RNA: Purine riboswitch aptamer
Organism: Paraliobacillus sp. PM-2
RNA sequence: GUGUUUAUCAAAUAAAUUACCUGUAUAACCUCAGAAUAUGGCUGAGGGUCUCUACCAGGAACCACAAAAUCCUGAUUACAGAAAAUGAACUGUUCAUU
Numbered sequence: 001g002u003g004u005u006u007a008u009c010a011a012a013u014a015a016a017u018u019a020c021c022u023g024u025a026u027a028a029c030c031u032c033a034g035a036a037u038a039u040g041g042c043u044g045a046g047g048g049u050c051u052c053u054a055c056c057a058g059g060a061a062c063c064a065c066a067a068a069a070u071c072c073u074g075a076u077u078a079c080a081g082a083a084a085a086u087g088a089a090c091u092g093u094u095c096a097u098u
Base pairs, nucleotide, nucleotide: 018084021081022080023079024078025077029047030046031045032044033043034042056074057073058072059071060070